Rfam assigns this 100-nucleotide RNA from Calorimonas adulescens to the family "SAM riboswitch aptamer (S box leader)". NCBI's taxonomy places the organism under Bacteria, Bacillota, Clostridia, Thermoanaerobacterales, Calorimonas. The family has 457 seed sequences and 9,625 matches in Rfam 15.1.
RNA sequence: CUCUUAUCAAGAGUGGCGGAGGGACAGGCCCUGUGAAACCCGGCAACCAGCUUUGCAUGGUGCUAAUUCCUGCAGAAUGGAUAAUUCUGAAAGAUGGGGG
Numbered sequence: 001c002u003c004u005u006a007u008c009a010a011g012a013g014u015g016g017c018g019g020a021g022g023g024a025c026a027g028g029c030c031c032u033g034u035g036a037a038a039c040c041c042g043g044c045a046a047c048c049a050g051c052u053u054u055g056c057a058u059g060g061u062g063c064u065a066a067u068u069c070c071u072g073c074a075g076a077a078u079g080g081a082u083a084a085u086u087c088u089g090a091a092a093g094a095u096g097g098g099g100g
Base pairs, nucleotide, nucleotide: 001100002099003098004097005096006095007094008093013041015040016039021031022030023029025072026071027070028069042064043063044062045061047060048059050056051055068092073089074088075087076086077085078084
Dot-bracket structure: ((((((((....[.[[....[[[.((((]]].......]]]((((.((.((...))..))))))...[))))((((((.....))))))..]))))))))